[Rfam]
RNA sequence: UGGUGAUGUCUCCUAACCAUUAUCAAUGGAGGCACUCGGUCACGCUGUGGGGAAGGCAACCUUAGACGCGGGUCGUCGAUGGUGUGAUGUGAGGGAGGGUUAGAUGCCCA
Numbered sequence: 001u002g003g004u005g006a007u008g009u010c011u012c013c014u015a016a017c018c019a020u021u022a023u024c025a026a027u028g029g030a031g032g033c034a035c036u037c038g039g040u041c042a043c044g045c046u047g048u049g050g051g052g053a054a055g056g057c058a059a060c061c062u063u064a065g066a067c068g069c070g071g072g073u074c075g076u077c078g079a080u081g082g083u084g085u086g087a088u089g090u091g092a093g094g095g096a097g098g099g100u101u102a103g104a105u106g107c108c109c110a
Stems, first nucleotide, its partner, number of pairs: 001019004007034007035093004039088008049062003065077004097109004

Annotation
Shown here is a 110-nucleotide sequence from Vulcanibacillus modesticaldus, a member of the family "epsC RNA". By type it is a cis-regulatory element. The source organism's lineage runs through Bacteria, Bacillati, Bacilli, Caryophanales and Vulcanibacillus. It scores 107 bits against the family's covariance model.